The record is a 79-nucleotide RNA from Aotus nancymaae, which matches "mir-1902 microRNA precursor family" in Rfam. Rfam links the family to the GO terms RISC complex and miRNA-mediated post-transcriptional gene silencing. Rfam 15.1 lists 1,188 matches to the family in 123 species. A search with the family's covariance model found it, with a score of 83 bits.

RNA sequence: GUUUAUUUUGAGAGUGUUUGCUGUAUAAUUGGACUUAAUAAAAUGUUUAGAGGUAAAGUAGGCAUGACUUCUGGUAGAU
Numbered sequence: 001g002u003u004u005a006u007u008u009u010g011a012g013a014g015u016g017u018u019u020g021c022u023g024u025a026u027a028a029u030u031g032g033a034c035u036u037a038a039u040a041a042a043a044u045g046u047u048u049a050g051a052g053g054u055a056a057a058g059u060a061g062g063c064a065u066g067a068c069u070u071c072u073g074g075u076a077g078a079u
Stems, first nucleotide, its partner, number of pairs: 001079007010070003014065009024055003030049005